The record is an 81-nucleotide sequence from Mola mola, which matches "mir-31 microRNA precursor family" in Rfam.
RNA sequence: CUCCGGAGGGACGGCAAGAUGCUGGCAUAGCUGCUGAGUCGGACGUCCUGCUAUGCCACCAACUUGCCAUCUCUCCGCCUC
Numbered sequence: 001c002u003c004c005g006g007a008g009g010g011a012c013g014g015c016a017a018g019a020u021g022c023u024g025g026c027a028u029a030g031c032u033g034c035u036g037a038g039u040c041g042g043a044c045g046u047c048c049u050g051c052u053a054u055g056c057c058a059c060c061a062a063c064u065u066g067c068c069a070u071c072u073c074u075c076c077g078c079c080u081c
Stems, first nucleotide, its partner, number of pairs: 005076007013068006020061002023058009
Dot-bracket structure: ....(((((((.((((((.((.(((((((((..................))))))))).)).)))))).))))))).....
For this family Rfam cites "The small RNA profile during Drosophila melanogaster development" (Aravin et al., Dev Cell, 2003).